Description
Rfam assigns this 119-nucleotide RNA sequence from Clostridium isatidis to the family "SAM riboswitch aptamer (S box leader)". It scores 65 bits against the family's covariance model.
RNA sequence: UUUUUAUCUAAAGACGGAGGGACUGGCCCUGUGAAGUCUAGCAACCAAAAUUAUUAAGCGAAAUUAGGAUGAUUUUUGGUGCUAAAUUCUACAGGUUAACUACGUCUAAAAGAUAGAAA
Numbered sequence: 001u002u003u004u005u006a007u008c009u010a011a012a013g014a015c016g017g018a019g020g021g022a023c024u025g026g027c028c029c030u031g032u033g034a035a036g037u038c039u040a041g042c043a044a045c046c047a048a049a050a051u052u053a054u055u056a057a058g059c060g061a062a063a064u065u066a067g068g069a070u071g072a073u074u075u076u077u078g079g080u081g082c083u084a085a086a087u088u089c090u091a092c093a094g095g096u097u098a099a100c101u102a103c104g105u106c107u108a109a110a111a112g113a114u115a116g117a118a119a
Stems, first nucleotide, its partner, number of pairs: 001119008011039001013038003019029003025089002040083004045079002047075003087111001093107004